RNA sequence: CUGCAAAUAUUGUCGCUGUCCUGAUAGUUCAAUGAUCAGGCUAGUCACUUGCUAUAUUAAAACUCUGCAAUGUGUCCCCAGGAAUUGCUUAUUUCUCUAGUUUUGUGUUUGGCUAGUGACAUAU
Numbered sequence: 001c002u003g004c005a006a007a008u009a010u011u012g013u014c015g016c017u018g019u020c021c022u023g024a025u026a027g028u029u030c031a032a033u034g035a036u037c038a039g040g041c042u043a044g045u046c047a048c049u050u051g052c053u054a055u056a057u058u059a060a061a062a063c064u065c066u067g068c069a070a071u072g073u074g075u076c077c078c079c080a081g082g083a084a085u086u087g088c089u090u091a092u093u094u095c096u097c098u099a100g101u102u103u104u105g106u107g108u109u110u111g112g113c114u115a116g117u118g119a120c121a122u123a124u
Base pairs, nucleotide, nucleotide: 003052004051005050016044017043018042020040021039022038023037024036025035062117063116064115067113068112078100080098081097082096087093
Rfam assigns this 124-nucleotide sequence from Terrapene triunguis to the family "Small nucleolar RNA SNORA72". Pairs were carried over by alignment from the consensus structure, which was predicted with PFOLD. For this family Rfam cites "The family of box ACA small nucleolar RNAs is defined by an evolutionarily conserved secondary structure and ubiquitous sequence elements essential for RNA accumulation" (Ganot et al., Genes Dev, 1997). Rfam 15.1 lists 1,541 matches to the family in 547 species. U72 is a member of the H/ACA class of snoRNAs.